[Rfam]
RNA sequence: CGAACGAAAAGCUCACGUAAAGGGCAAACACACGGAUUGGGCUCUUUAAAGAGUUCCAGUCAUUACUUACAACCCUUGGUGAAGGUCUGAGAAAAACCAUACUUUGUCUCUAGCUGAGACCCUUACGAGAGUGAGGAGUGGGUUACCAGAAACGAUACCCAGCGCUUUCCUUGUAUGAAGUUGUUCCUUUUCAGGGGAUGACAGAUUUUAUGGGAGUGUUUGUGGUUGGAACGCGGCCCACUGGUGGAAGAACUAUGAAGUGCAAUACGUGAGGCAUCAGACAUGAUGUAACUCAAUUCAGACUACUCUUUCGUUCG
Numbered sequence: 001c002g003a004a005c006g007a008a009a010a011g012c013u014c015a016c017g018u019a020a021a022g023g024g025c026a027a028a029c030a031c032a033c034g035g036a037u038u039g040g041g042c043u044c045u046u047u048a049a050a051g052a053g054u055u056c057c058a059g060u061c062a063u064u065a066c067u068u069a070c071a072a073c074c075c076u077u078g079g080u081g082a083a084g085g086u087c088u089g090a091g092a093a094a095a096a097c098c099a100u101a102c103u104u105u106g107u108c109u110c111u112a113g114c115u116g117a118g119a120c121c122c123u124u125a126c127g128a129g130a131g132u133g134a135g136g137a138g139u140g141g142g143u144u145a146c147c148a149g150a151a152a153c154g155a156u157a158c159c160c161a162g163c164g165c166u167u168u169c170c171u172u173g174u175a176u177g178a179a180g181u182u183g184u185u186c187c188u189u190u191u192c193a194g195g196g197g198a199u200g201a202c203a204g205a206u207u208u209u210a211u212g213g214g215a216g217u218g219u220u221u222g223u224g225g226u227u228g229g230a231a232c233g234c235g236g237c238c239c240a241c242u243g244g245u246g247g248a249a250g251a252a253c254u255a256u257g258a259a260g261u262g263c264a265a266u267a268c269g270u271g272a273g274g275c276a277u278c279a280g281a282c283a284u285g286a287u288g289u290a291a292c293u294c295a296a297u298u299c300a301g302a303c304u305a306c307u308c309u310u311u312c313g314u315u316c317g
Stems, first nucleotide, its partner, number of pairs: 001317004007311003012273007020077005035061006087301005096245004106120005121136006138241007158225001274289006